[Rfam]
RNA: Small nucleolar RNA Z256
Nucleotides: 093
Stems, first nucleotide, its partner, number of pairs: 003091003006087001
Number, partner (000 for none) and nucleotide at each position: 001000a002000c003091u004090u005089g006087c007000u008000g009000a010000u011000c012000a013000u014000g015000c016000u017000g018000a019000c020000a021000c022000c023000a024000u025000c026000c027000a028000c029000u030000c031000g032000g033000g034000c035000u036000u037000g038000g039000c040000u041000g042000a043000c044000u045000a046000g047000c048000c049000u050000c051000c052000c053000c054000a055000a056000g057000u058000a059000c060000a061000c062000c063000a064000u065000c066000a067000a068000c069000a070000g071000c072000u073000g074000g075000g076000c077000c078000a079000a080000g081000c082000u083000g084000a085000a086000g087006g088000c089005c090004a091003a092000a093000u